Annotation: A member of the RNA family "Group II catalytic intron D1-D4-3" from Aneurinibacillus sp. XH2, 181 nucleotides long. Rfam describes the family as follows. Group II introns are found in rRNA, tRNA and mRNA of organelles in fungi, plants and protists, and also in mRNA in bacteria. The literature on the family includes a 2001 paper in Trends Genet by Bonen and Vogel, "The ins and outs of group II introns".
RNA sequence: UCGACUUCGAGGUCGAAUCUGAAGGAAGUCGGCGGCAAACCUUUGGCCUGAGGAAUACGAAACGAACCUCAUAGGAGGCCAACGUUCUUUGGAUGAGUUUACCAAACAAAACAAAGUCCAUACUGUAGCCAACAGAGGCCAUAGUACAUGCUAUGUAACGACAUGAAAUGAAAAGACCGAU
Numbered sequence: 001u002c003g004a005c006u007u008c009g010a011g012g013u014c015g016a017a018u019c020u021g022a023a024g025g026a027a028g029u030c031g032g033c034g035g036c037a038a039a040c041c042u043u044u045g046g047c048c049u050g051a052g053g054a055a056u057a058c059g060a061a062a063c064g065a066a067c068c069u070c071a072u073a074g075g076a077g078g079c080c081a082a083c084g085u086u087c088u089u090u091g092g093a094u095g096a097g098u099u100u101a102c103c104a105a106a107c108a109a110a111a112c113a114a115a116g117u118c119c120a121u122a123c124u125g126u127a128g129c130c131a132a133c134a135g136a137g138g139c140c141a142u143a144g145u146a147c148a149u150g151c152u153a154u155g156u157a158a159c160g161a162c163a164u165g166a167a168a169u170g171a172a173a174a175g176a177c178c179g180a181u
Stems, first nucleotide, its partner, number of pairs: 001016006028181005042167004046156002049153002064151001070150003078145002084139003088135002091119004097112004